[Rfam]
RNA sequence: CUCUGGAGAACAGUAGUUUAUGUACCGACGAAGUAACGGAACGAAUGUGGCGACAUUUGGUGAAGGAAUCUUUCAGGUAAAAGGACAGAG
Number, nucleotide and partner (000 for none) at each position: 001c090002u089003c088004u087005g086006g000007a000008g000009a000010a000011c000012a000013g021014u020015a019016g000017u000018u000019u015020a014021u013022g000023u000024a078025c077026c076027g074028a073029c000030g000031a072032a071033g070034u000035a000036a000037c065038g000039g000040a000041a000042c000043g000044a000045a000046u000047g000048u000049g000050g000051c000052g000053a000054c000055a000056u000057u000058u000059g000060g000061u000062g000063a000064a000065g037066g000067a000068a000069u000070c033071u032072u031073u028074c027075a000076g026077g025078u024079a000080a000081a000082a000083g000084g000085a000086c005087a004088g003089a002090g001
Glycine riboswitch aptamer: a 90-nucleotide sequence from Hespellia stercorisuis. For this family Rfam cites "A glycine-dependent riboswitch that uses cooperative binding to control gene expression" (Mandal et al., Science, 2004). It scores 33 bits against the family's covariance model. The pairing is the family consensus, mapped onto this sequence.